[Rfam]
RNA sequence: AAGGCAGGCCGUUCUAUCGCUGUCCCGCGAGGGAGAGAGGAAAGUCCGGGCAACGCAGGGCAUCGUGCUUCUUAACGGGAAGGUCUCCGAGAGGGGGCAGUAGUGUAACAGAAAAUAACCGUUCCGUUUGCGGAAUAAGGGUGAAAAGGUGAGGUAAGAGCCCACCGGUAUCCCGGGUGAUCGGGGUAGCCGUACACCUCACGAGUUGCAAGACCAUGUACACUGGCGCUUAGGUUUGCCCGACCGAUGCCAGGGGGUAGGUCGCUAGAGCUGCGGAGUGAUCCGCGGAGUAGAUAAAUGAUAGAAACCGCAAGGUACAGAACCCGGCUUACAGGCCUGCCUUUUUU
Numbered sequence: 001a002a003g004g005c006a007g008g009c010c011g012u013u014c015u016a017u018c019g020c021u022g023u024c025c026c027g028c029g030a031g032g033g034a035g036a037g038a039g040g041a042a043a044g045u046c047c048g049g050g051c052a053a054c055g056c057a058g059g060g061c062a063u064c065g066u067g068c069u070u071c072u073u074a075a076c077g078g079g080a081a082g083g084u085c086u087c088c089g090a091g092a093g094g095g096g097g098c099a100g101u102a103g104u105g106u107a108a109c110a111g112a113a114a115a116u117a118a119c120c121g122u123u124c125c126g127u128u129u130g131c132g133g134a135a136u137a138a139g140g141g142u143g144a145a146a147a148g149g150u151g152a153g154g155u156a157a158g159a160g161c162c163c164a165c166c167g168g169u170a171u172c173c174c175g176g177g178u179g180a181u182c183g184g185g186g187u188a189g190c191c192g193u194a195c196a197c198c199u200c201a202c203g204a205g206u207u208g209c210a211a212g213a214c215c216a217u218g219u220a221c222a223c224u225g226g227c228g229c230u231u232a233g234g235u236u237u238g239c240c241c242g243a244c245c246g247a248u249g250c251c252a253g254g255g256g257g258u259a260g261g262u263c264g265c266u267a268g269a270g271c272u273g274c275g276g277a278g279u280g281a282u283c284c285g286c287g288g289a290g291u292a293g294a295u296a297a298a299u300g301a302u303a304g305a306a307a308c309c310g311c312a313a314g315g316u317a318c319a320g321a322a323c324c325c326g327g328c329u330u331a332c333a334g335g336c337c338u339g340c341c342u343u344u345u346u347u
Stems, first nucleotide, its partner, number of pairs: 001343010011332001012306007020037002023034004042330003046327005051208004058241004063204005068082005083098001085096004099199002103197005119140002121136006148166004153161001168190001169188008212263004223253005233245004271288007

Rfam assigns this 347-nucleotide sequence from Butyricimonas sp. An62 to the family "Bacterial RNase P class A". Clan: RNaseP clan. The source organism's lineage runs through Bacteria, Pseudomonadati, Bacteroidia, Bacteroidales and Butyricimonas. It scores 250 bits against the family's covariance model. Pairs were carried over by alignment from the consensus structure, which is taken from published work. Rfam describes the family as follows. Ribonuclease P (RNase P) is a ubiquitous endoribonuclease, found in archaea, bacteria and eukarya as well as chloroplasts and mitochondria.